[Rfam]
RNA: mir-42 microRNA precursor family
Organism: Caenorhabditis sp. 36 PRJEB53466
RNA sequence: GACCCACGGACCUCAGUGGGUGUUUGCUUUUUCGGUGAAGUGUUCGUUCUGAUCUUCUUCACCGGGUUAACAUCUACAGAGGUCCGGCCUGGGGU
Numbered sequence: 001g002a003c004c005c006a007c008g009g010a011c012c013u014c015a016g017u018g019g020g021u022g023u024u025u026g027c028u029u030u031u032u033c034g035g036u037g038a039a040g041u042g043u044u045c046g047u048u049c050u051g052a053u054c055u056u057c058u059u060c061a062c063c064g065g066g067u068u069a070a071c072a073u074c075u076a077c078a079g080a081g082g083u084c085c086g087g088c089c090u091g092g093g094g095u
Base pairs, nucleotide, nucleotide: 003093004092005091006090008085009084010083011082012081013080014079016077017076018075019074020073021072022071023070024069026067027066028065033064034063035062036061037060038059039058040057